Shown here is a 127-nucleotide sequence from Thermoanaerobacterium sp. RBIITD, a member of the family "FMN riboswitch aptamer (RFN element)". Lineage of the source: Bacteria > Bacillati > Bacillota > Clostridia > Thermoanaerobacterium. Rfam describes the family as follows. The RFN element is a highly conserved domain that is found frequently in the 5'-untranslated regions of prokaryotic mRNAs that encode for flavin mononucleotide (FMN) biosynthesis and transport proteins. This element is a metabolite-dependent riboswitch that directly binds FMN in the absence of proteins. In Bacillus subtilis, the riboswitch most likely controls gene expression by causing premature transcription termination within the 5' untranslated region of the ribDEAHT operon and precluding access to the ribosome-binding site of ypaA mRNA.The FMN riboswitch structure, reported in present an FMN-bound six-stem junction, adopts a butterfly-like scaffold, stapled together by opposingly directed but nearly identically folded peripheral domains. The family's consensus secondary structure is taken from published work. A search with the family's covariance model found it, with a score of 120 bits.

[Rfam]
RNA sequence: GAAUAUCUUCAGGGCAGGGUGAAAUUCCCGACCGGCGGUAAGCAAAAGCAAGCCCGCGACCCGCGGAAGCGGUGGACUUGGUGUGAUUCCAAGGCCGACAGUAAAGUCUGGAGGAAAGAAGAUUUUA
Number, nucleotide and partner (000 for none) at each position: 001g000002a000003a125004u000005a123006u122007c121008u120009u119010c118011a000012g000013g000014g000015c000016a000017g029018g028019g027020u000021g000022a000023a000024a000025u000026u000027c019028c018029c017030g000031a107032c106033c097034g096035g057036c056037g055038g054039u000040a000041a000042g000043c000044a000045a000046a000047a000048g000049c000050a000051a000052g095053c094054c038055c037056g036057c035058g000059a000060c000061c072062c071063g000064c000065g000066g000067a000068a000069g000070c000071g062072g061073u000074g000075g000076a000077c093078u092079u091080g090081g089082u000083g000084u000085g000086a000087u000088u000089c081090c080091a079092a078093g077094g053095c052096c034097g033098a000099c110100a109101g108102u000103a000104a000105a000106g032107u031108c101109u100110g099111g000112a000113g000114g000115a000116a000117a000118g010119a009120a008121g007122a006123u005124u000125u003126u000127a000